[Rfam]
RNA sequence: GGCAACCGAGCGCCACAGCGGACGGGAGCGGGGGACCCAGGUCAGUGCCCGGUCCGUGCGCUCCCCGCGCCCGGGCCGCGGCUAGGGGUGAAGCCGCUCGACAGGCGGCCGGGCAACCUCAGCCCGAACCCGACGCUCACCUCGCAGGCGUCGCAGAGGACACUG
Numbered sequence: 001g002g003c004a005a006c007c008g009a010g011c012g013c014c015a016c017a018g019c020g021g022a023c024g025g026g027a028g029c030g031g032g033g034g035a036c037c038c039a040g041g042u043c044a045g046u047g048c049c050c051g052g053u054c055c056g057u058g059c060g061c062u063c064c065c066c067g068c069g070c071c072c073g074g075g076c077c078g079c080g081g082c083u084a085g086g087g088g089u090g091a092a093g094c095c096g097c098u099c100g101a102c103a104g105g106c107g108g109c110c111g112g113g114c115a116a117c118c119u120c121a122g123c124c125c126g127a128a129c130c131c132g133a134c135g136c137u138c139a140c141c142u143c144g145c146a147g148g149c150g151u152c153g154c155a156g157a158g159g160a161c162a163c164u165g
Stems, first nucleotide, its partner, number of pairs: 011150004019026001028145006038085001086131003094108004111125004
RNA: c-di-AMP riboswitch aptamer (ydaO/yuaA leader)
Organism: Streptomyces sp. CB01881